Rfam assigns this 82-nucleotide sequence from Coniophora puteana to the family "tRNA". The organism belongs to Coniophora puteana, within Eukaryota. It scores 45 bits against the family's covariance model.
[Rfam]
RNA sequence: GGACCCGUGGCGCAGUGGUAGCGCGUGUGAUUCCAGUAGUUGAGCAUCCACAAGGUCAUCCGUUCAAUCCGGGUCGGGUUCA
Numbered sequence: 001g002g003a004c005c006c007g008u009g010g011c012g013c014a015g016u017g018g019u020a021g022c023g024c025g026u027g028u029g030a031u032u033c034c035a036g037u038a039g040u041u042g043a044g045c046a047u048c049c050a051c052a053a054g055g056u057c058a059u060c061c062g063u064u065c066a067a068u069c070c071g072g073g074u075c076g077g078g079u080u081c082a
Base pairs, nucleotide, nucleotide: 001081002080003079004078005077006076007075010024011023012022013021026052027051028050029049058074059073060072061071062070